[Rfam]
RNA sequence: UAAUAAGGAUCAACGGCUAAGUACGCCACGUCGUGUGGCAACGCCGUUGUGACCCACGUCGUGUGGC
Numbered sequence: 001u002a003a004u005a006a007g008g009a010u011c012a013a014c015g016g017c018u019a020a021g022u023a024c025g026c027c028a029c030g031u032c033g034u035g036u037g038g039c040a041a042c043g044c045c046g047u048u049g050u051g052a053c054c055c056a057c058g059u060c061g062u063g064u065g066g067c
Stems, first nucleotide, its partner, number of pairs: 011049007025039005054066004
Rfam assigns this 67-nucleotide sequence from Lederbergia lenta to the family "Bacillaceae-1 RNA". It is annotated as a small RNA.